[Rfam]
RNA sequence: ACUAGAACUCGAGAUAUGGGUUGAACACUGAAUAGUGUCUGGGCUGCAGGACAGAUUCGAACUUCUCCGUUGGUGCUACAAUUUGGACUUGAAAAUGACCUUUUUGAAUCUUGAACUCCCAUGAGAGUUUUAGGCCUAUAUCUUAGCUUUCCAUC
Numbered sequence: 001a002c003u004a005g006a007a008c009u010c011g012a013g014a015u016a017u018g019g020g021u022u023g024a025a026c027a028c029u030g031a032a033u034a035g036u037g038u039c040u041g042g043g044c045u046g047c048a049g050g051a052c053a054g055a056u057u058c059g060a061a062c063u064u065c066u067c068c069g070u071u072g073g074u075g076c077u078a079c080a081a082u083u084u085g086g087a088c089u090u091g092a093a094a095a096u097g098a099c100c101u102u103u104u105u106g107a108a109u110c111u112u113g114a115a116c117u118c119c120c121a122u123g124a125g126a127g128u129u130u131u132a133g134g135c136c137u138a139u140a141u142c143u144u145a146g147c148u149u150u151c152c153a154u155c
Stems, first nucleotide, its partner, number of pairs: 003153001005151003008146002011144010021133005027128003035122003041119003045115001048112004054105002059100001063097001072088001074086001
Shown here is a 155-nucleotide sequence from Populus tomentosa, a member of the family "MIR2912 microRNA precursor family". The family's consensus secondary structure was predicted with RNAalifold. Its family is annotated with RISC complex and miRNA-mediated post-transcriptional gene silencing in the Gene Ontology.